[Rfam]
RNA sequence: UAAUUGAGUCCAGUGACUCUCCCUCUAGCACACAGAGGUCAAACCGGGUGCAACCCCCCCUCCCCCCGUAGGUUAACGGGACCA
Numbered sequence: 001u002a003a004u005u006g007a008g009u010c011c012a013g014u015g016a017c018u019c020u021c022c023c024u025c026u027a028g029c030a031c032a033c034a035g036a037g038g039u040c041a042a043a044c045c046g047g048g049u050g051c052a053a054c055c056c057c058c059c060c061u062c063c064c065c066c067c068g069u070a071g072g073u074u075a076a077c078g079g080g081a082c083c084a
Base pairs, nucleotide, nucleotide: 006019007018008017009016010015013051022038023037024036025035026034046057047056048055058072059071065080066079067078068077069076
Tymovirus/Pomovirus/Furovirus tRNA-like 3' UTR element: an 84-nucleotide RNA from Tymovirus cucumis. The base pairs follow the family's consensus structure, which is taken from published work. It is one of the family's seed sequences. It is annotated as a cis-regulatory element. NCBI's taxonomy places the organism under Viruses, Kitrinoviricota, Tymovirales, Tymoviridae, Tymovirus cucumis. A reference for the family is Matsuda and Dreher (2004), "The tRNA-like structure of Turnip yellow mosaic virus RNA is a 3'-translational enhancer", Virology.